[Rfam]
Rfam assigns this 427-nucleotide sequence from Cavia porcellus to the family "Vertebrate telomerase RNA". About the family: Telomerase is a ribonucleoprotein reverse transcriptase that synthesises telomeric DNA. Telomerase RNAs differ greatly in sequence and structure between vertebrates, ciliates and yeasts, but they share a 5' pseudoknot structure close to the template sequence. Vertebrate telomerase RNAs have a 3' H/ACA snoRNA-like domain. On this family, see Chen et al., Cell 2000: "Secondary structure of vertebrate telomerase RNA". By type it is a non-coding RNA gene. Gene Ontology terms of the family: telomerase catalytic core complex, telomere maintenance via telomerase and telomerase activity. Its Rfam clan is "Telomerase clan". The base pairs follow the family's consensus structure, which is taken from published work.

Nucleotides: 427
Base pairs, nucleotide, nucleotide: 005192006191007190008189009188010187011186012185013184014183015182016181017180018177019176020175021174022173064117065116066115067114068113077109078108079107080106081105082104083103084102093169094168095167096166097165098164099162100161101160196350197349198348199347200346201345202344210326211325212324217320218319219318220317221316222315223314227308228307229306230305231304238282239281240280241279242278244277245276246275247274250270251269252268284296285295286294287293361419362418363417364416367413368412369411370410378407379406380405381404382403386399387398388397
Number, partner (000 for none) and nucleotide at each position: 001000u002000g003000g004000g005192c006191c007190g008189g009188g010187a011186g012185g013184g014183g015182u016181g017180g018177u019176g020175g021174u022173c023000u024000u025000c026000c027000c028000u029000g030000u031000c032000u033000a034000a035000c036000c037000c038000u039000a040000a041000g042000g043000u044000g045000a046000a047000g048000a049000g050000g051000a052000c053000g054000u055000g056000g057000g058000u059000g060000c061000c062000g063000u064117g065116u066115u067114u068113u069000u070000c071000g072000c073000u074000c075000c076000c077109g078108c079107a080106c081105g082104c083103u084102g085000u086000u087000u088000u089000u090000c091000u092000c093169g094168c095167u096166g097165a098164c099162u100161u101160u102084c103083a104082g105081c106080g107079u108078g109077c110000a111000g112000a113068a114067a115066a116065g117064c118000c119000u120000u121000g122000g123000u124000c125000u126000a127000c128000c129000g130000u131000c132000g133000g134000u135000u136000a137000u138000u139000g140000u141000c142000u143000a144000a145000u146000u147000a148000g149000a150000a151000g152000c153000a154000a155000a156000c157000a158000a159000a160101a161100a162099a163000u164098g165097u166096c167095a168094g169093c170000g171000u172000g173022g174021g175020c176019c177018g178000g179000g180017c181016c182015g183014c184013c185012c186011c187010u188009c189008c190007c191006g192005g193000a194000u195000u196350c197349c198348u199347g200346c201345g202344g203000c204000g205000g206000c207000u208000c209000g210326u211325c212324c213000a214000c215000c216000g217320g218319c219318c220317c221316c222315c223314g224000a225000g226000c227308c228307c229306c230305g231304c232000c233000u234000a235000g236000g237000c238282c239281g240280c241279g242278g243000c244277c245276g246275g247274c248000g249000c250270g251269g252268g253000g254000c255000u256000u257000c258000c259000c260000u261000g262000g263000a264000g265000g266000c267000g268252c269251c270250c271000a272000u273000g274247g275246c276245c277244g278242c279241c280240g281239c282238g283000a284296a285295g286294a287293g288000u289000u290000c291000g292000u293287c294286u295285c296284u297000g298000u299000c300000a301000g302000c303000u304231g305230c306229g307228g308227g309000u310000c311000g312000c313000c314223c315222g316221g317220g318219g319218g320217c321000c322000g323000c324212g325211g326210g327000a328000g329000a330000g331000u332000c333000c334000c335000a336000g337000g338000c339000c340000u341000u342000g343000g344202c345201c346200g347199c348198a349197g350196g351000g352000a353000g354000a355000g356000a357000a358000a359000c360000g361419g362418a363417g364416c365000a366000g367413g368412u369411c370410c371000u372000c373000g374000c375000g376000c377000g378407g379406u380405g381404c382403a383000c384000u385000c386399c387398c388397c389000u390000g391000a392000g393000c394000u395000g396000u397388g398387g399386g400000a401000a402000g403382u404381g405380c406379a407378c408000c409000g410370g411369g412368a413367c414000g415000g416364g417363c418362u419361c420000c421000u422000a423000c424000a425000a426000g427000c